[Rfam]
RNA sequence: UUCUCUAAUGAUGAUUGGCGUUAUGUUCAACUGCUCUGAAAAGCUGUGAUUGAACACUGCCUUUCUGAAUGGAC
Dot-bracket structure: .(((.(..............................................................).))).
Numbered sequence: 001u002u003c004u005c006u007a008a009u010g011a012u013g014a015u016u017g018g019c020g021u022u023a024u025g026u027u028c029a030a031c032u033g034c035u036c037u038g039a040a041a042a043g044c045u046g047u048g049a050u051u052g053a054a055c056a057c058u059g060c061c062u063u064u065c066u067g068a069a070u071g072g073a074c
Stems, first nucleotide, its partner, number of pairs: 002073003006069001
The family of this 74-nucleotide RNA sequence from Astyanax mexicanus is "Small nucleolar RNA Z40".
NCBI's taxonomy places the organism under Eukaryota, Opisthokonta, Actinopterygii, Acestrorhamphinae, Astyanax.
Rfam classes the family as a C/D-box small nucleolar RNA.
A search with the family's covariance model found it, with a score of 50 bits.
For this family Rfam cites "The high diversity of snoRNAs in plants: identification and comparative study of 120 snoRNA genes from Oryza sativa" (Chen et al., Nucleic Acids Res, 2003).
Its family is annotated with RNA processing and nucleolus in the Gene Ontology.
Rfam 15.1 lists 615 matches to the family in 541 species.